Shown here is a 353-nucleotide part of an RNA from Gracilinema caldarium, a member of the family "Bacterial large subunit ribosomal RNA".
[Rfam]
RNA sequence: CGAGAGAACUCGCGUUAAGGAACUCGGCAACAUGCACACGUAACUUCGGGAGAAGUGUGGCCUUUUCUGGUUUAGCAAUAAGUCAGGGGAGGUAGCAUAAAGCAGUCCCAGGCGACUGUUUACCAAAAACACAGGCCUCUGCGAAUCAGCAAUGAGACGUAUAGGGGCUGACACCUGCCCGGUGCCGGAAGGUUAAGAGGAGCGGUUAGCCGCAAGGCGAAGCUGUGAAUCGAAGCCCCGGUAAACGGCGGCCGUAACUAUAACGGUCCUAAGGUAGCGAAAUUCCUUGUCGGGUAAGUUCCGACCCGCACGAAUGGUGUAACGAUCUGGGAGCUGUCUCAACGCGAGACUCG
Numbered sequence: 001c002g003a004g005a006g007a008a009c010u011c012g013c014g015u016u017a018a019g020g021a022a023c024u025c026g027g028c029a030a031c032a033u034g035c036a037c038a039c040g041u042a043a044c045u046u047c048g049g050g051a052g053a054a055g056u057g058u059g060g061c062c063u064u065u066u067c068u069g070g071u072u073u074a075g076c077a078a079u080a081a082g083u084c085a086g087g088g089g090a091g092g093u094a095g096c097a098u099a100a101a102g103c104a105g106u107c108c109c110a111g112g113c114g115a116c117u118g119u120u121u122a123c124c125a126a127a128a129a130c131a132c133a134g135g136c137c138u139c140u141g142c143g144a145a146u147c148a149g150c151a152a153u154g155a156g157a158c159g160u161a162u163a164g165g166g167g168c169u170g171a172c173a174c175c176u177g178c179c180c181g182g183u184g185c186c187g188g189a190a191g192g193u194u195a196a197g198a199g200g201a202g203c204g205g206u207u208a209g210c211c212g213c214a215a216g217g218c219g220a221a222g223c224u225g226u227g228a229a230u231c232g233a234a235g236c237c238c239c240g241g242u243a244a245a246c247g248g249c250g251g252c253c254g255u256a257a258c259u260a261u262a263a264c265g266g267u268c269c270u271a272a273g274g275u276a277g278c279g280a281a282a283u284u285c286c287u288u289g290u291c292g293g294g295u296a297a298g299u300u301c302c303g304a305c306c307c308g309c310a311c312g313a314a315u316g317g318u319g320u321a322a323c324g325a326u327c328u329g330g331g332a333g334c335u336g337u338c339u340c341a342a343c344g345c346g347a348g349a350c351u352c353g
Stems, first nucleotide, its partner, number of pairs: 001353004009348008018339003035059005044049001060093006069084006094098001106332007113324002117131003134169008142159001146155003172319004177249003182246002184242005191237003197231002202226005209218002250268006269273001279306001289305006
NCBI's taxonomy places the organism under Bacteria, Spirochaetota, Breznakiellaceae, Gracilinema, Gracilinema caldarium. Gene Ontology terms of the family: structural constituent of ribosome and ribosome.